RNA sequence: AUUGGCACAAUGAGGAUUUAAUGCGGUACGAGGUCGAAAGAUCUAUGAAAUUUGUAUUUUCUAGUCCUUUUCAUUCUGAGUGCCCA
Numbered sequence: 001a002u003u004g005g006c007a008c009a010a011u012g013a014g015g016a017u018u019u020a021a022u023g024c025g026g027u028a029c030g031a032g033g034u035c036g037a038a039a040g041a042u043c044u045a046u047g048a049a050a051u052u053u054g055u056a057u058u059u060u061c062u063a064g065u066c067c068u069u070u071u072c073a074u075u076c077u078g079a080g081u082g083c084c085c086a
Base pairs, nucleotide, nucleotide: 004084005083006082007081008080010074011073012072013071014070033042034041035040